RNA sequence: AAGGAUAUGUGCAAGAAUGGUUAUAGAAACUUUCUUUUUAAAAAAAUUUUUUUUAGAGAUCUCUAACUUCAUGCUAAGAGCAGUUUGGAGAGACUUUGACAGAACAGGUCAACAUAAUAUCUGCAACUUCCAUUCGACUUUUCUAUAAUA
Dot-bracket structure: ...........(...((..................................))..)..............................((((((.........((.((((...........)))).....)).......)))))).......
The family of this 150-nucleotide RNA sequence from Capra hircus is "Small nucleolar RNA SNORA44".
For this family Rfam cites "RNomics: an experimental approach that identifies 201 candidates for novel, small, non-messenger RNAs in mouse" (Huttenhofer et al., EMBO J, 2001).
Gene Ontology terms of the family: nucleolus and RNA processing.
Rfam classes the family as an H/ACA-box small nucleolar RNA.
The family's consensus secondary structure was predicted with PFOLD.
About the family: ACA44 is a member of the H/ACA class of snoRNA that guide the sites of modification of uridines to pseudouridines.
Its Rfam clan is "SNORA44 clan".